[Rfam]
RNA: mir-67 microRNA precursor family
Organism: Ascaris suum
RNA sequence: GGGCACUUAGCUCGCUCGGCUGGUUGUUAGAUGUUUCUGAUGUUCAUCACAACCUCCUUGAGUGAGUUGAAAGCCCU
Numbered sequence: 001g002g003g004c005a006c007u008u009a010g011c012u013c014g015c016u017c018g019g020c021u022g023g024u025u026g027u028u029a030g031a032u033g034u035u036u037c038u039g040a041u042g043u044u045c046a047u048c049a050c051a052a053c054c055u056c057c058u059u060g061a062g063u064g065a066g067u068u069g070a071a072a073g074c075c076c077u
Stems, first nucleotide, its partner, number of pairs: 007069001009067001011066009022054002025051003031047003